[Rfam]
RNA sequence: AAAGCCCACCUGGUAAGGUCUAGCCAACCGCCAGUAGCCAGCCUUGGAGCCUGUAGGGUAACCGGCAGGUUUAAGCGUAGGUAGGCAAGGCAGCGGGCCGAAAGCCAUAGCGCUGAAGGGAUUGAGCCUCGAAAUAAAAUUUAGUUGGGAGGGCCGAUGCUCUGACCCAAGCAGAAGGCAACAUGGCGGUAAUCAUUAAAGGCGAGACUACCGCCAUCUCCUCGGGGUCGCAGACCU
Numbered sequence: 001a002a003a004g005c006c007c008a009c010c011u012g013g014u015a016a017g018g019u020c021u022a023g024c025c026a027a028c029c030g031c032c033a034g035u036a037g038c039c040a041g042c043c044u045u046g047g048a049g050c051c052u053g054u055a056g057g058g059u060a061a062c063c064g065g066c067a068g069g070u071u072u073a074a075g076c077g078u079a080g081g082u083a084g085g086c087a088a089g090g091c092a093g094c095g096g097g098c099c100g101a102a103a104g105c106c107a108u109a110g111c112g113c114u115g116a117a118g119g120g121a122u123u124g125a126g127c128c129u130c131g132a133a134a135u136a137a138a139a140u141u142u143a144g145u146u147g148g149g150a151g152g153g154c155c156g157a158u159g160c161u162c163u164g165a166c167c168c169a170a171g172c173a174g175a176a177g178g179c180a181a182c183a184u185g186g187c188g189g190u191a192a193u194c195a196u197u198a199a200a201g202g203c204g205a206g207a208c209u210a211c212c213g214c215c216a217u218c219u220c221c222u223c224g225g226g227g228u229c230g231c232a233g234a235c236c237u
Stems, first nucleotide, its partner, number of pairs: 010034004017029003021205001023203002037086003041082004045077002047072008056063002124229001126228006147222006153179003158173004184216008193207002
RNA: Group II catalytic intron D1-D4-6
Organism: Neomoorella thermoacetica